[Rfam]
RNA sequence: AAAAUUAAAUAAUGUAAGUCGCUCUGGAUAAGAGCGUCUGCUAAAUGUAAAUGU
Numbered sequence: 001a002a003a004a005u006u007a008a009a010u011a012a013u014g015u016a017a018g019u020c021g022c023u024c025u026g027g028a029u030a031a032g033a034g035c036g037u038c039u040g041c042u043a044a045a046u047g048u049a050a051a052u053g054u
Base pairs, nucleotide, nucleotide: 013043014041015040016039020036021035022034023033024032025031

Rfam assigns this 54-nucleotide sequence from Coregonus sp. 'balchen' to the family "UnaL2 LINE 3' element".
Rfam's curators write: The eel long interspersed element (LINE) UnaL2 and its partner short interspersed element (SINE) share a conserved 3' tail containing a stem-loop that is critical for their retrotransposition. Presumably, the first step of retrotransposition is the recognition of their 3' tails by UnaL2-encoded reverse transcriptase. The solution structure of a 17-nucleotide RNA derived from the 3' tail of UnaL2 was determined by NMR.
On this family, see Baba et al., RNA 2004: "Solution structure of an RNA stem-loop derived from the 3' conserved region of eel LINE UnaL2".
Taxonomically the source falls in Coregonus (Eukaryota, Opisthokonta, Clupeocephala, Salmonidae).
Rfam classes the family as a cis-regulatory element.